This 152-nucleotide RNA sequence from Artemisia annua belongs to the Rfam family "small nucleolar RNA snoR135". By type it is an H/ACA-box small nucleolar RNA. Rfam 15.1 lists 837 matches to the family in 220 species. The family's consensus secondary structure was predicted with RNAalifold.
RNA sequence: UAAGUAGAGAUAGUGUGUAUUGGCUUAGUGCCUAAUUGAUGCACUUUGCUCAGAAGAGUUCUCUGCAAAAUCAAUGUGACAAGGGGAAGGUGGGCGGUUGUGUUCCAUGUUUAUAUCGAUUGGAUUCUUCAACAAUCAUUUUCCCCACAUUU
Numbered sequence: 001u002a003a004g005u006a007g008a009g010a011u012a013g014u015g016u017g018u019a020u021u022g023g024c025u026u027a028g029u030g031c032c033u034a035a036u037u038g039a040u041g042c043a044c045u046u047u048g049c050u051c052a053g054a055a056g057a058g059u060u061c062u063c064u065g066c067a068a069a070a071u072c073a074a075u076g077u078g079a080c081a082a083g084g085g086g087a088a089g090g091u092g093g094g095c096g097g098u099u100g101u102g103u104u105c106c107a108u109g110u111u112u113a114u115a116u117c118g119a120u121u122g123g124a125u126u127c128u129u130c131a132a133c134a135a136u137c138a139u140u141u142u143c144c145c146c147a148c149a150u151u152u
Stems, first nucleotide, its partner, number of pairs: 004066007015044006083146011097133004